Shown here is a 148-nucleotide RNA sequence from Pseudomonas sp. v388, a member of the family "PrrF RNA".
From the family's description: PrrF RNA is a small RNA involved in iron homeostasis and is found exclusively in Pseudomonas species.
Its family is annotated with sRNA-mediated gene silencing in the Gene Ontology.
RNA sequence: UUGACUUGCAAAUGAUAAUGAUUACUAUUGCAUCAGCCGGUCGCGAGACCGGCUGGAUAAACCAGGAGUCUUAGGUCGGCUCCCGGAUUAUCUCCUCAUCAGGCUAAUCACGGUUUUUGACCCGGCUCUUUGGCCGGGUCUUUUUUUU
Numbered sequence: 001u002u003g004a005c006u007u008g009c010a011a012a013u014g015a016u017a018a019u020g021a022u023u024a025c026u027a028u029u030g031c032a033u034c035a036g037c038c039g040g041u042c043g044c045g046a047g048a049c050c051g052g053c054u055g056g057a058u059a060a061a062c063c064a065g066g067a068g069u070c071u072u073a074g075g076u077c078g079g080c081u082c083c084c085g086g087a088u089u090a091u092c093u094c095c096u097c098a099u100c101a102g103g104c105u106a107a108u109c110a111c112g113g114u115u116u117u118u119g120a121c122c123c124g125g126c127u128c129u130u131u132g133g134c135c136g137g138g139u140c141u142u143u144u145u146u147u148u
Stems, first nucleotide, its partner, number of pairs: 034055009062086002065083004069078001094103003119140008